Shown here is an 88-nucleotide RNA sequence from Nothocercus julius, a member of the family "mir-135 microRNA precursor family".
[Rfam]
Nucleotides: 088
Base pairs, nucleotide, nucleotide: 001088002087003086004085005084006083008082009081010080012078013077014076015075016074017073018072019071020070021069022068023067026065027064028063029062030061031060032059033058034057035056036055037054
Number, partner (000 for none) and nucleotide at each position: 001088c002087g003086c004085c005084g006083g007000c008082c009081g010080u011000c012078u013077u014076g015075u016074a017073u018072g019071g020070c021069u022068u023067u024000u025000u026065a027064u028063u029062c030061c031060u032059a033058u034057g035056u036055g037054a038000u039000u040000a041000u042000a043000c044000g045000u046000c047000a048000c049000g050000c051000a052000c053000u054037u055036c056035a057034u058033a059032u060031a061030g062029g063028g064027a065026u066000u067023g068022a069021a070020g071019c072018c073017g074016u075015g076014c077013a078012a079000a080010a081009c082008g083006c084005c085004g086003g087002c088001g

The literature on the family includes a 2002 paper in Curr Biol by Lagos-Quintana et al., "Identification of tissue-specific microRNAs from mouse". Gene Ontology terms of the family: gene silencing by miRNA and RISC complex.